Overview:
A member of the RNA family "CopA-like RNA" from Escherichia coli, 91 nucleotides long. Taxonomically the source falls in Escherichia coli (Bacteria, Pseudomonadati, Enterobacterales, Enterobacteriaceae). By type it is an antisense RNA. In several groups of bacterial plasmids, antisense RNAs regulate copy number through inhibition of replication initiator protein synthesis. Its family is annotated with mRNA binding in the Gene Ontology.
RNA sequence: AUAGAGCAACAGCUUCUAUGCAGUUUCUUGUUAGCCCCGUUAAUCUUUCUGGACUCGCCAAAGUUAGAGAAGAUUAUCGGGGUUUUCACUU
Numbered sequence: 001a002u003a004g005a006g007c008a009a010c011a012g013c014u015u016c017u018a019u020g021c022a023g024u025u026u027c028u029u030g031u032u033a034g035c036c037c038c039g040u041u042a043a044u045c046u047u048u049c050u051g052g053a054c055u056c057g058c059c060a061a062a063g064u065u066a067g068a069g070a071a072g073a074u075u076a077u078c079g080g081g082g083u084u085u086u087c088a089c090u091u
Base pairs, nucleotide, nucleotide: 001019002018003017004016005015030089031088033084034083035082036081037080038079039078041076042075043074044073045072046071047070